[Rfam]
RNA: Small nucleolar RNA SNORD58
Organism: Neogale vison
RNA sequence: CUGCAGUGAUGCGUUUCUUAGGACACCUUUGGAAUUACCGUGAAAAUGAAUCAGUUCUGAGCGGC
Number, nucleotide and partner (000 for none) at each position: 001c064002u063003g062004c061005a000006g000007u000008g000009a000010u000011g000012c000013g000014u000015u000016u000017c000018u000019u000020a000021g000022g000023a000024c000025a000026c000027c000028u000029u000030u000031g000032g000033a000034a000035u000036u000037a000038c000039c000040g000041u000042g000043a000044a000045a000046a000047u000048g000049a000050a000051u000052c000053a000054g000055u000056u000057c000058u000059g000060a000061g004062c003063g002064g001065c000